Rfam assigns this 265-nucleotide sequence from bacterium HR15 to the family "Bacterial large signal recognition particle RNA". For this family Rfam cites "SRPDB: Signal Recognition Particle Database" (Rosenblad et al., Nucleic Acids Res, 2003). The match comes from Rfam's covariance-model search (162 bits). The base pairs follow the family's consensus structure, which is taken from published work. Rfam's curators write: The signal recognition particle (SRP) is a universally conserved ribonucleoprotein involved in the co-translational targeting of proteins to membranes.

RNA sequence: UCGCGCUAAGCGGGGAGCUGGCGGUUCCCUGUACCUGCAAUCCGCCAUAGCAGGGCUGAAUCCCGGCUCGCGGCGUGUCCCCUGUGCGAAACGACGGCAGGCGACCGCGUUGAGGAUCGGGAGCUUCGCAACGAGGGGUCGAUGAACCCCGCCAGGCCCGGAAGGGAGCAACGGUAAGUCGGUCUCCCGUGUGCCGAAGUGACCCCGGUCGGAGUGGUUGGCAUGCCGCACGCCGCGGAGGGGCGCGACAACAGCCGGUGCGCGA
Numbered sequence: 001u002c003g004c005g006c007u008a009a010g011c012g013g014g015g016a017g018c019u020g021g022c023g024g025u026u027c028c029c030u031g032u033a034c035c036u037g038c039a040a041u042c043c044g045c046c047a048u049a050g051c052a053g054g055g056c057u058g059a060a061u062c063c064c065g066g067c068u069c070g071c072g073g074c075g076u077g078u079c080c081c082c083u084g085u086g087c088g089a090a091a092c093g094a095c096g097g098c099a100g101g102c103g104a105c106c107g108c109g110u111u112g113a114g115g116a117u118c119g120g121g122a123g124c125u126u127c128g129c130a131a132c133g134a135g136g137g138g139u140c141g142a143u144g145a146a147c148c149c150c151g152c153c154a155g156g157c158c159c160g161g162a163a164g165g166g167a168g169c170a171a172c173g174g175u176a177a178g179u180c181g182g183u184c185u186c187c188c189g190u191g192u193g194c195c196g197a198a199g200u201g202a203c204c205c206c207g208g209u210c211g212g213a214g215u216g217g218u219u220g221g222c223a224u225g226c227c228g229c230a231c232g233c234c235g236c237g238g239a240g241g242g243g244c245g246c247g248a249c250a251a252c253a254g255c256c257g258g259u260g261c262g263c264g265a
Stems, first nucleotide, its partner, number of pairs: 001265006009057003012030008034054005063258006072249001074247003079243005085237004092232002095228005103219002106216003115210007123200006129191002132189002135187002138183006149174003157166003